A member of the RNA family "SAH (S-adenosyl-L-homocysteine) riboswitch aptamer" from Ideonella livida, 114 nucleotides long.
RNA sequence: CUUUCCGAGGAGCGUUGCGAGGUUGCCGGCAUGCCGGCAGGCCCCAGGCUCGGAAAGCCGGAUGCGACCAGCGCCCGCUGGCCGCCUCUCCGGUGGCAACGGCGCUCACCCGCA
Numbered sequence: 001c002u003u004u005c006c007g008a009g010g011a012g013c014g015u016u017g018c019g020a021g022g023u024u025g026c027c028g029g030c031a032u033g034c035c036g037g038c039a040g041g042c043c044c045c046a047g048g049c050u051c052g053g054a055a056a057g058c059c060g061g062a063u064g065c066g067a068c069c070a071g072c073g074c075c076c077g078c079u080g081g082c083c084g085c086c087u088c089u090c091c092g093g094u095g096g097c098a099a100c101g102g103c104g105c106u107c108a109c110c111c112g113c114a
Stems, first nucleotide, its partner, number of pairs: 002056007021043004
Lineage of the source: Bacteria > Pseudomonadati > Burkholderiales > Sphaerotilaceae > Ideonella.
It scores 52 bits against the family's covariance model.
The base pairs follow the family's consensus structure, which is taken from published work.
Rfam links the family to the GO terms S-adenosylhomocysteine metabolic process and regulation of gene expression.